Description
A member of the RNA family "Clostridiales-1 RNA" from Firmicutes bacterium CAG:882, 179 nucleotides long. The organism belongs to Bacillota, within Bacteria. The match comes from Rfam's covariance-model search (111 bits).
RNA sequence: UAUAAUAAGUCCAUCAAUAGAUAUACUGCAUGGCUGCUUGCAGACAAGGCAGUAUAUCUAUUAGAUGGGCAAACAGACAUGAGCAAGUAAAUAAGUUCGCAAAGCUGAACUUAUCGGAUUGCGAAUGGCUGUCAGAAUUUUCGCGAGUGCGCAAGCACGGAGAAAAUUCUGUUAUUAUA
Numbered sequence: 001u002a003u004a005a006u007a008a009g010u011c012c013a014u015c016a017a018u019a020g021a022u023a024u025a026c027u028g029c030a031u032g033g034c035u036g037c038u039u040g041c042a043g044a045c046a047a048g049g050c051a052g053u054a055u056a057u058c059u060a061u062u063a064g065a066u067g068g069g070c071a072a073a074c075a076g077a078c079a080u081g082a083g084c085a086a087g088u089a090a091a092u093a094a095g096u097u098c099g100c101a102a103a104g105c106u107g108a109a110c111u112u113a114u115c116g117g118a119u120u121g122c123g124a125a126u127g128g129c130u131g132u133c134a135g136a137a138u139u140u141u142c143g144c145g146a147g148u149g150c151g152c153a154a155g156c157a158c159g160g161a162g163a164a165a166a167u168u169c170u171g172u173u174a175u176u177a178u179a
Stems, first nucleotide, its partner, number of pairs: 001179007010069004016062014031047001032045001034043003073132004078127003083122004091114009135169004140164003147158004

Background:
Rfam classes the family as a small RNA.